[Rfam]
Nucleotides: 171
Base pairs, nucleotide, nucleotide: 009162010161011160013158015156016155017154022151026147027146029144030143031142032141033140034139035138037136038135040133041132042131043130044129046127047126049123053120055119056118057117058116059115061113
Number, partner (000 for none) and nucleotide at each position: 001000g002000u003000g004000a005000g006000c007000u008000a009162g010161g011160a012000a013158g014000a015156g016155g017154a018000a019000g020000a021000a022151a023000u024000a025000g026147u027146c028000a029144a030143a031142g032141a033140g034139c035138a036000g037136u038135g039000a040133g041132a042131a043130u044129g045000g046127g047126a048000g049123c050000u051000c052000g053120g054000a055119g056118g057117g058116a059115a060000c061113c062000c063000u064000g065000a066000g067000c068000u069000a070000u071000c072000c073000c074000u075000c076000u077000a078000c079000g080000c081000u082000u083000c084000a085000a086000g087000a088000a089000a090000c091000a092000g093000a094000g095000g096000u097000g098000g099000a100000u101000a102000u103000c104000u105000a106000c107000c108000u109000c110000a111000g112000u113061g114000u115059u116058u117057c118056c119055c120053c121000u122000u123049g124000c125000c126047u127046c128000a129044c130043a131042u132041u133040c134000c135038u136037a137000u138035u139034g140033u141032u142031c143030u144029u145000a146027g147026g148000u149000u150000c151022u152000c153000c154017u155016u156015c157000c158013c159000c160011u161010u162009c163000c164000u165000u166000u167000u168000a169000c170000c171000u
MIR2118 microRNA precursor family: a 171-nucleotide RNA from Triticum aestivum. It scores 95 bits against the family's covariance model. The base pairs follow the family's consensus structure, which was predicted with RNAalifold. Lineage of the source: Eukaryota > Viridiplantae > Liliopsida > commelinids > Triticum. Its family is annotated with RISC complex and miRNA-mediated post-transcriptional gene silencing in the Gene Ontology. On this family, see Zhu et al., Genome Res 2008: "A diverse set of microRNAs and microRNA-like small RNAs in developing rice grains". Rfam 15.1 lists 2,377 matches to the family in 45 species.